Background:
The family of this 600-nucleotide part of an RNA from Stackebrandtia endophytica is "Bacterial large subunit ribosomal RNA". NCBI's taxonomy places the organism under Bacteria, Bacillati, Actinomycetota, Actinomycetes, Stackebrandtia.
RNA sequence: GGGCGCAUGGUGGAUGCCUUGGCAUCAGGAACCGAUGAAGGACGUGUGAGGCCGCGAAAGGCCUGGGGGAGUUGUCAACAGAGCUGUGAUCCCAGGAUGUCCGAAUGGGGAAACCCAGCACCAGUCAUGUGGUGUUACCCACGCCUGAAUGUAUAGGGCGUGUGGAGGGAACGCGGGGAAGUGAAACAUCUCAGUACCCGUAGGAAGAGAAAACAACCGUGAUUCUGUGAGUAGUGGCGAGCGAAAGCGGAUGAGGCUAAACCGUGGGCGUGUGAUACCCGGCAGGGGUUGCGUUCGCGGGGUUGUGGGAGCAUUCUUCGUUCAUCUGCCGGUGGACGGGACAGUAAGAAAGUGUCGUGUUAGGUGAAUGCGUUGGAAAGCGUGACCGUAGACGGUGAUAGUCCGGUAACCGAAAACAUGGCGCCUGUCUUGAGUGUUUCCCGAGUAGCAGCGGACUCGUGGAAUCUGCUGUGAAUCUGCCAGGACCACCUGGUAAGCCUAAAUAUUCCCUGAUGACCGAUAGCGGACUAGUACCGUGAGGGAAAGGUGAAAAGUACCCCGGGAGGGGAGUGAAAUAGUACCUGAAACCAUGCGCUUGCA
Numbered sequence: 001g002g003g004c005g006c007a008u009g010g011u012g013g014a015u016g017c018c019u020u021g022g023c024a025u026c027a028g029g030a031a032c033c034g035a036u037g038a039a040g041g042a043c044g045u046g047u048g049a050g051g052c053c054g055c056g057a058a059a060g061g062c063c064u065g066g067g068g069g070a071g072u073u074g075u076c077a078a079c080a081g082a083g084c085u086g087u088g089a090u091c092c093c094a095g096g097a098u099g100u101c102c103g104a105a106u107g108g109g110g111a112a113a114c115c116c117a118g119c120a121c122c123a124g125u126c127a128u129g130u131g132g133u134g135u136u137a138c139c140c141a142c143g144c145c146u147g148a149a150u151g152u153a154u155a156g157g158g159c160g161u162g163u164g165g166a167g168g169g170a171a172c173g174c175g176g177g178g179a180a181g182u183g184a185a186a187c188a189u190c191u192c193a194g195u196a197c198c199c200g201u202a203g204g205a206a207g208a209g210a211a212a213a214c215a216a217c218c219g220u221g222a223u224u225c226u227g228u229g230a231g232u233a234g235u236g237g238c239g240a241g242c243g244a245a246a247g248c249g250g251a252u253g254a255g256g257c258u259a260a261a262c263c264g265u266g267g268g269c270g271u272g273u274g275a276u277a278c279c280c281g282g283c284a285g286g287g288g289u290u291g292c293g294u295u296c297g298c299g300g301g302g303u304u305g306u307g308g309g310a311g312c313a314u315u316c317u318u319c320g321u322u323c324a325u326c327u328g329c330c331g332g333u334g335g336a337c338g339g340g341a342c343a344g345u346a347a348g349a350a351a352g353u354g355u356c357g358u359g360u361u362a363g364g365u366g367a368a369u370g371c372g373u374u375g376g377a378a379a380g381c382g383u384g385a386c387c388g389u390a391g392a393c394g395g396u397g398a399u400a401g402u403c404c405g406g407u408a409a410c411c412g413a414a415a416a417c418a419u420g421g422c423g424c425c426u427g428u429c430u431u432g433a434g435u436g437u438u439u440c441c442c443g444a445g446u447a448g449c450a451g452c453g454g455a456c457u458c459g460u461g462g463a464a465u466c467u468g469c470u471g472u473g474a475a476u477c478u479g480c481c482a483g484g485a486c487c488a489c490c491u492g493g494u495a496a497g498c499c500u501a502a503a504u505a506u507u508c509c510c511u512g513a514u515g516a517c518c519g520a521u522a523g524c525g526g527a528c529u530a531g532u533a534c535c536g537u538g539a540g541g542g543a544a545a546g547g548u549g550a551a552a553a554g555u556a557c558c559c560c561g562g563g564a565g566g567g568g569a570g571u572g573a574a575a576u577a578g579u580a581c582c583u584g585a586a587a588c589c590a591u592g593c594g595c596u597u598g599c600a
Base pairs, nucleotide, nucleotide: 001597002596003595004594005593006592007591008590009589010588016582017547018546021518022517023515024514025513026512027511028510029509030507031506032168033167040102041101042100043056044055045054062096063095064094065093066092067091068090071084072083073082107116108115109114117136118135119134120133121132122131123130138165139164140162141161142160143159144158145157146156172203173201174200175199176198177197183190184189213220214219223503224251225250226249227248228247234242235241254500255499256498257497262300263299264298265297266296267295268294269293270292271291272290307442308441309440312436313435314434315433316432350426352424353423354422355421356420357419358418359417360416361415363411364410365409369384370383371382372381373380387391393405394404395403448472449471450470451469452468453467454466455465479494480493481492482491483490534541535540557568558567559566560565